[Rfam]
RNA sequence: ACAAUGAUACUCCCUUACAGCCACAGUCCGAGCGUUAAAAGCGUCGCAGGCAAUGGGUAGGGCCGCGUGAAAACCACGCGGGGGUGAAAGUCCCGUGG
Numbered sequence: 001a002c003a004a005u006g007a008u009a010c011u012c013c014c015u016u017a018c019a020g021c022c023a024c025a026g027u028c029c030g031a032g033c034g035u036u037a038a039a040a041g042c043g044u045c046g047c048a049g050g051c052a053a054u055g056g057g058u059a060g061g062g063c064c065g066c067g068u069g070a071a072a073a074c075c076a077c078g079c080g081g082g083g084g085u086g087a088a089a090g091u092c093c094c095g096u097g098g
Base pairs, nucleotide, nucleotide: 012095013062014061015060016059017058018057063081064080065079067077068076069075082094083093084092
Shown here is a 98-nucleotide RNA sequence, a member of the family "pemK RNA". It is one of the family's seed sequences. By type it is a cis-regulatory element.